[Rfam]
RNA sequence: UACGUGCUCCGGGGUCGGUGAGAGUCCGAACCGGCGGUGACAGUCCGCGAGCGGAGGGUGAGAGCCCGCUGCUGAACCGGUGGAAUUCCGGUGCCGACGGUAAUGCGUCCAGGUUCCGCCCUGGCGCUCAGUCCGGAUGGGAGGCGCACGUC
Numbered sequence: 001u002a003c004g005u006g007c008u009c010c011g012g013g014g015u016c017g018g019u020g021a022g023a024g025u026c027c028g029a030a031c032c033g034g035c036g037g038u039g040a041c042a043g044u045c046c047g048c049g050a051g052c053g054g055a056g057g058g059u060g061a062g063a064g065c066c067c068g069c070u071g072c073u074g075a076a077c078c079g080g081u082g083g084a085a086u087u088c089c090g091g092u093g094c095c096g097a098c099g100g101u102a103a104u105g106c107g108u109c110c111a112g113g114u115u116c117c118g119c120c121c122u123g124g125c126g127c128u129c130a131g132u133c134c135g136g137a138u139g140g141g142a143g144g145c146g147c148a149c150g151u152c
Stems, first nucleotide, its partner, number of pairs: 003150005009144002016028003032096002034048004043094002051072003076092005098135003

A member of the RNA family "FMN riboswitch aptamer (RFN element)" from Leifsonia xyli, 152 nucleotides long.
The RFN element is a highly conserved domain that is found frequently in the 5'-untranslated regions of prokaryotic mRNAs that encode for flavin mononucleotide (FMN) biosynthesis and transport proteins.
The source organism's lineage runs through Bacteria, Micrococcales, Microbacteriaceae, Leifsonia and Leifsonia xyli subsp. xyli.